[Rfam]
Nucleotides: 101
Stems, first nucleotide, its partner, number of pairs: 008097006015088005020082002022079002
Number, partner (000 for none) and nucleotide at each position: 001000u002000g003000c004000g005000a006000c007000g008097g009096c010095a011094a012093g013092u014000c015088u016087u017086a018085u019084a020082c021081g022079a023078c024000c025000a026000g027000c028000u029000c030000c031000u032000g033000c034000u035000a036000a037000u038000c039000c040000u041000c042000c043000a044000g045000g046000g047000u048000g049000g050000g051000a052000a053000c054000a055000c056000a057000g058000c059000a060000a061000a062000g063000g064000u065000a066000u067000g068000u069000g070000g071000u072000u073000g074000a075000g076000c077000g078023g079022u080000g081021c082020g083000a084019u085018a086017u087016a088015a089000g090000u091000a092013a093012c094011u095010u096009g097008c098000a099000u100000u101000u